[Rfam]
RNA sequence: GCAUGUAUUCAUCUCAAUCCACAUGUGUUGAAGUAAAUUGGAGUGCAAUUAAACUAAGUUCCAUUUCAAUCCACUUCAACACAUGUGGAUUGAGAUGGAUACACAU
Numbered sequence: 001g002c003a004u005g006u007a008u009u010c011a012u013c014u015c016a017a018u019c020c021a022c023a024u025g026u027g028u029u030g031a032a033g034u035a036a037a038u039u040g041g042a043g044u045g046c047a048a049u050u051a052a053a054c055u056a057a058g059u060u061c062c063a064u065u066u067c068a069a070u071c072c073a074c075u076u077c078a079a080c081a082c083a084u085g086u087g088g089a090u091u092g093a094g095a096u097g098g099a100u101a102c103a104c105a106u
Stems, first nucleotide, its partner, number of pairs: 004103009014093017033074002037070005043064003
This 106-nucleotide RNA sequence from Miscanthus lutarioriparius belongs to the Rfam family "MIR5565 microRNA precursor family". The match comes from Rfam's covariance-model search (85 bits). The base pairs follow the family's consensus structure, which was predicted with RNAalifold.